[Rfam]
RNA sequence: ACGGGAAACCGACCAGACCCUGGGCAGGGACGGGGGAACCAGGAUUUUUGCCGUUCCUCGACGGCUUGGGGUGAAGCCGCCCAUGCGGAAUCGUUUCCGCUGACGGCGGCCGGGCCACCUCCCGGUCCGAACCCGACAGCUCACCUCGCAGGCGUGCGGAGAGGGACC
Numbered sequence: 001a002c003g004g005g006a007a008a009c010c011g012a013c014c015a016g017a018c019c020c021u022g023g024g025c026a027g028g029g030a031c032g033g034g035g036g037a038a039c040c041a042g043g044a045u046u047u048u049u050g051c052c053g054u055u056c057c058u059c060g061a062c063g064g065c066u067u068g069g070g071g072u073g074a075a076g077c078c079g080c081c082c083a084u085g086c087g088g089a090a091u092c093g094u095u096u097c098c099g100c101u102g103a104c105g106g107c108g109g110c111c112g113g114g115c116c117a118c119c120u121c122c123c124g125g126u127c128c129g130a131a132c133c134c135g136a137c138a139g140c141u142c143a144c145c146u147c148g149c150a151g152g153c154g155u156g157c158g159g160a161g162a163g164g165g166a167c168c
Stems, first nucleotide, its partner, number of pairs: 013152002018029003031148005040068004069134003077109004112128004

A member of the RNA family "c-di-AMP riboswitch aptamer (ydaO/yuaA leader)" from Streptomyces kaniharaensis, 168 nucleotides long. A search with the family's covariance model found it, with a score of 67 bits. Rfam's curators write: This family represents a conserved RNA structure found upstream of the ydaO and yuaA genes in Bacillus subtilis and related genes in other bacteria.